The record is a 231-nucleotide sequence from Nestor notabilis, which matches "Small nucleolar RNA SNORD17" in Rfam. The family's RNA type in Rfam is C/D-box small nucleolar RNA. The literature on the family includes a 2001 paper in EMBO J by Huttenhofer et al., "RNomics: an experimental approach that identifies 201 candidates for novel, small, non-messenger RNAs in mouse". It scores 96 bits against the family's covariance model. Gene Ontology terms of the family: RNA processing and nucleolus. Rfam describes the family as follows. The snoRNA HBI-43 belongs to the C/D family of snoRNAs, guiding 2'O-ribose methylation at position U3797 of the 28S rRNA. Pseudouridylation in position U3797 is predicted to be guided by the H/ACA snoRNA ACA48.
[Rfam]
RNA sequence: GUUUAUCCAUUCUCUGAGUGCAGUGGUGCUGCCCUCCUGCAGCACCCCGGUUCCUGUUCUAGGGUCUGGGUGCUGUGCAGCCUCCAGAGACCCUCUGGUCUCCCAGUGUCCUACUGGGGGCUGUUGUGGUGUGUGGCUGGCUGCCUGCAGGAGUGAAGUGGUGCUGGCAUGGUUGGAGCCCCUCUCUGGGGGGCUCUGUCCUCACUGAGAUGAGGGAUGAUGUCUGAUCAC
Numbered sequence: 001g002u003u004u005a006u007c008c009a010u011u012c013u014c015u016g017a018g019u020g021c022a023g024u025g026g027u028g029c030u031g032c033c034c035u036c037c038u039g040c041a042g043c044a045c046c047c048c049g050g051u052u053c054c055u056g057u058u059c060u061a062g063g064g065u066c067u068g069g070g071u072g073c074u075g076u077g078c079a080g081c082c083u084c085c086a087g088a089g090a091c092c093c094u095c096u097g098g099u100c101u102c103c104c105a106g107u108g109u110c111c112u113a114c115u116g117g118g119g120g121c122u123g124u125u126g127u128g129g130u131g132u133g134u135g136g137c138u139g140g141c142u143g144c145c146u147g148c149a150g151g152a153g154u155g156a157a158g159u160g161g162u163g164c165u166g167g168c169a170u171g172g173u174u175g176g177a178g179c180c181c182c183u184c185u186c187u188g189g190g191g192g193g194c195u196c197u198g199u200c201c202u203c204a205c206u207g208a209g210a211u212g213a214g215g216g217a218u219g220a221u222g223u224c225u226g227a228u229c230a231c
Base pairs, nucleotide, nucleotide: 001223002222004220007216008215010214011213012212014209015208018205019204023168024167026165027163028162029161030160031159032158034155035153037151038150040147041146045072047070048069050066052064053063054062055061077144078143079142080141081140082139090130091129096123097122098121099120100119102118103117104116105115106114107113108112171201172200174198175197176196177195179193180192181191182190